[Rfam]
RNA sequence: CUAUGGUUUAUGUUAACCAUGGCUGAAGGAG
Number, nucleotide and partner (000 for none) at each position: 001c022002u021003a020004u019005g018006g017007u016008u015009u000010a000011u000012g000013u000014u000015a008016a007017c006018c005019a004020u003021g002022g001023c000024u000025g000026a000027a000028g000029g000030a000031g000
Notes
L31-Firmicutes ribosomal protein leader: a 31-nucleotide RNA. The base pairs follow the family's consensus structure, which is taken from published work. The family is grouped with related families in Rfam's "Ribosomal Protein L31 Leader clan". The family's RNA type in Rfam is cis-regulatory leader.